Rfam assigns this 141-nucleotide RNA sequence to the family "Small nucleolar RNA snoR136". A reference for the family is Chen and Wu (2009), "Mining small RNA sequencing data: a new approach to identify small nucleolar RNAs in Arabidopsis", Nucleic Acids Res. Rfam's curators put it in the seed alignment.
[Rfam]
RNA sequence: AUGGCUUCUUUGUCUUAAGCUUAAAACUUAAUUUUAAUAAUUAUUUUUGAGCUUUUUUUUAUAAAGGAGCCUAAAUCGAUCGUUCUCCUCGCUAUCCAGUGUCUCGAUUAUGUAGCAUUUGGACGUUGGAGAACUAUAACU
Numbered sequence: 001a002u003g004g005c006u007u008c009u010u011u012g013u014c015u016u017a018a019g020c021u022u023a024a025a026a027c028u029u030a031a032u033u034u035u036a037a038u039a040a041u042u043a044u045u046u047u048u049g050a051g052c053u054u055u056u057u058u059u060u061a062u063a064a065a066g067g068a069g070c071c072u073a074a075a076u077c078g079a080u081c082g083u084u085c086u087c088c089u090c091g092c093u094a095u096c097c098a099g100u101g102u103c104u105c106g107a108u109u110a111u112g113u114a115g116c117a118u119u120u121g122g123a124c125g126u127u128g129g130a131g132a133a134c135u136a137u138a139a140c141u
Stems, first nucleotide, its partner, number of pairs: 002073001003071003008066006017056001023055003027051005082134007090125002095123005105112002